[Rfam]
RNA sequence: GUCGGGUACGGAGAUAUGUAUCCGGUUGGCAUUUUUGGAAAGAUUAUCGGCACGUUGGCAGUUUUAUGUGGAUUGCUGUCAAUUGCAUUGCCAGUUCCUGUUAUUGUUACAAAU
Numbered sequence: 001g002u003c004g005g006g007u008a009c010g011g012a013g014a015u016a017u018g019u020a021u022c023c024g025g026u027u028g029g030c031a032u033u034u035u036u037g038g039a040a041a042g043a044u045u046a047u048c049g050g051c052a053c054g055u056u057g058g059c060a061g062u063u064u065u066a067u068g069u070g071g072a073u074u075g076c077u078g079u080c081a082a083u084u085g086c087a088u089u090g091c092c093a094g095u096u097c098c099u100g101u102u103a104u105u106g107u108u109a110c111a112a113a114u
Base pairs, nucleotide, nucleotide: 001114002113005110008107009106010105011104013102014101015100016099018097020095021094037077038076040074049063050062051061
RNA: Potassium channel RNA editing signal